This 94-nucleotide sequence from Octodon degus belongs to the Rfam family "mir-3473 microRNA precursor family". Rfam links the family to the GO terms cellular response to mechanical stimulus, RISC complex and miRNA-mediated post-transcriptional gene silencing. It scores 76 bits against the family's covariance model. NCBI's taxonomy places the organism under Eukaryota, Theria, Boreoeutheria, Euarchontoglires, Octodon.
[Rfam]
RNA sequence: ACCACUGAGCCAUCUCUCCAGCCCCUAAAUUCAAUUUUUAAACAUAUACCUACCAAAAACAGUUUGCUAGGGGCUGGAGAGAUGGCUCAGUGGU
Numbered sequence: 001a002c003c004a005c006u007g008a009g010c011c012a013u014c015u016c017u018c019c020a021g022c023c024c025c026u027a028a029a030u031u032c033a034a035u036u037u038u039u040a041a042a043c044a045u046a047u048a049c050c051u052a053c054c055a056a057a058a059a060c061a062g063u064u065u066g067c068u069a070g071g072g073g074c075u076g077g078a079g080a081g082a083u084g085g086c087u088c089a090g091u092g093g094u
Stems, first nucleotide, its partner, number of pairs: 002093026